The family of this 201-nucleotide RNA sequence from Limnospira maxima is "HNH endonuclease-associated RNA and ORF (HEARO) RNA". The family's RNA type in Rfam is non-coding RNA gene. The family has 139 seed sequences and 952 matches in Rfam 15.1. A reference for the family is Weinberg et al. (2009), "Exceptional structured noncoding RNAs revealed by bacterial metagenome analysis", Nature. The match comes from Rfam's covariance-model search (89 bits). The base pairs follow the family's consensus structure, which is taken from published work. The organism belongs to Limnospira maxima, within Bacteria.
[Rfam]
RNA sequence: CUCGAUCCCGAAAUUACUCCUCAAAGGAGAUGAUCGAUGCAGGUCCAGGAUUAGACCUACGUUAAGGGGGUGAUGACACCUACAGGUGAGCGCCAGCCUGUUGCUCUGUCGUCUAUCUUUAAGGAACGAGAUGAGUGGAUUUGUAAGCUCCAGUGAGCUAGACGUAAAAAGCCCCUUUAACAUGACCGAGGCAAACAUUAC
Number, nucleotide and partner (000 for none) at each position: 001c039002u037003c036004g035005a034006u033007c032008c000009c000010g000011a000012a000013a000014u000015u000016a000017c000018u000019c027020c026021u025022c000023a000024a000025a021026g020027g019028a000029g000030a000031u000032g007033a006034u005035c004036g003037a002038u000039g001040c000041a000042g187043g186044u185045c184046c000047a058048g057049g056050a000051u000052u000053a000054g000055a000056c049057c048058u047059a000060c000061g181062u180063u179064a178065a177066g176067g175068g174069g173070g172071u171072g000073a000074u000075g000076a109077c108078a000079c000080c103081u000082a101083c100084a099085g098086g097087u096088g000089a000090g000091c000092g192093c191094c190095a000096g087097c086098c085099u084100g083101u082102u000103g080104c000105u000106c000107u000108g077109u076110c000111g163112u162113c161114u160115a159116u000117c157118u156119u155120u000121a000122a000123g154124g000125a000126a000127c000128g150129a149130g148131a000132u146133g000134a000135g000136u000137g000138g000139a000140u000141u000142u000143g000144u000145a000146a132147g000148c130149u129150c128151c000152a000153g000154u123155g119156a118157g117158c000159u115160a114161g113162a112163c111164g000165u000166a000167a000168a000169a000170a000171g071172c070173c069174c068175c067176u066177u065178u064179a063180a062181c061182a000183u000184g045185a044186c043187c042188g000189a000190g094191g093192c092193a000194a000195a000196c000197a000198u000199u000200a000201c000